Shown here is an 81-nucleotide sequence from Clostridium ljungdahlii, a member of the family "ZMP/ZTP riboswitch aptamer (pfl RNA motif)".

[Rfam]
RNA sequence: AAAUAAUCAUGUAACUGGCGGAAAUGGAGUUUACCAUAGGGAGCAUGAUUAACAAAGAUAUCGACCGCCUGGGUAAAUUAU
Numbered sequence: 001a002a003a004u005a006a007u008c009a010u011g012u013a014a015c016u017g018g019c020g021g022a023a024a025u026g027g028a029g030u031u032u033a034c035c036a037u038a039g040g041g042a043g044c045a046u047g048a049u050u051a052a053c054a055a056a057g058a059u060a061u062c063g064a065c066c067g068c069c070u071g072g073g074u075a076a077a078u079u080a081u
Stems, first nucleotide, its partner, number of pairs: 004051009015040002017069005024037004059075004